[Rfam]
RNA sequence: UGCAGAGUAGAUUUGUAUGCGUAAAGUGCCCUCUGGAUAGAGAGUUGCUGGAAGGACGAAAAGGUAAAUCUUACGGUGUACAAACUCGCAUCUCGCUGCA
Numbered sequence: 001u002g003c004a005g006a007g008u009a010g011a012u013u014u015g016u017a018u019g020c021g022u023a024a025a026g027u028g029c030c031c032u033c034u035g036g037a038u039a040g041a042g043a044g045u046u047g048c049u050g051g052a053a054g055g056a057c058g059a060a061a062a063g064g065u066a067a068a069u070c071u072u073a074c075g076g077u078g079u080a081c082a083a084a085c086u087c088g089c090a091u092c093u094c095g096c097u098g099c100a
Stems, first nucleotide, its partner, number of pairs: 001100005010087002012084008020075003026057002029055002032052005040093001042091001044089001061072004

Rfam assigns this 100-nucleotide RNA sequence from Lachnospiraceae bacterium 6_1_63FAA to the family "THF (Tetrahydrofolate) riboswitch aptamer". From the family's description: Tetrahydrofolate (THF) riboswitch was first reported for Ames et al. as an RNA motif in 5' untranslated (5'-UTR)regions of folate transport and biosynthesis genes in Firmicutes genomes. Rfam links the family to the GO term tetrahydrofolate metabolic process. The base pairs follow the family's consensus structure, which is taken from published work.